A member of the RNA family "abiF RNA", 37 nucleotides long. Pairs were carried over by alignment from the consensus structure, which is taken from published work. Rfam's curators put it in the seed alignment. Actinobacteria, Bacteroidetes, Clostridia, Proteobacteria, one Clostridia phage.
[Rfam]
RNA sequence: CCCGCCAAGCCUCUUGAUAAUGCUCAAAUAGGCGGGU
Numbered sequence: 001c002c003c004g005c006c007a008a009g010c011c012u013c014u015u016g017a018u019a020a021u022g023c024u025c026a027a028a029u030a031g032g033c034g035g036g037u
Stems, first nucleotide, its partner, number of pairs: 001036006008024003